[Rfam]
Nucleotides: 101
Stems, first nucleotide, its partner, number of pairs: 018087001020085006029049006058077006
Number, partner (000 for none) and nucleotide at each position: 001000c002000g003000a004000c005000a006000u007000a008000a009000u010000g011000c012000g013000a014000c015000a016000a017000c018087u019000a020085u021084u022083c023082g024081u025080a026000u027000a028000a029049g030048c031047u032046c033045a034044g035000u036000a037000a038000g039000a040000u041000g042000g043000c044034c045033u046032g047031a048030g049029c050000g051000u052000u053000u054000c055000u056000a057000c058077c059076c060075g061074g062073c063072a064000g065000c066000c067000g068000c069000g070000a071000a072063u073062g074061c075060u076059g077058g078000a079000c080025u081024a082023c083022g084021a085020g086000a087018a088000a089000u090000c091000a092000u093000g094000u095000g096000u097000a098000c099000a100000u101000a
Shown here is a 101-nucleotide RNA sequence from Aureibacillus halotolerans, a member of the family "Purine riboswitch aptamer". From the family's description: Riboswitches are metabolite binding domains within certain messenger RNAs that serve as precision sensors for their corresponding targets. Allosteric rearrangement of mRNA structure is mediated by ligand binding, and this results in modulation of gene expression.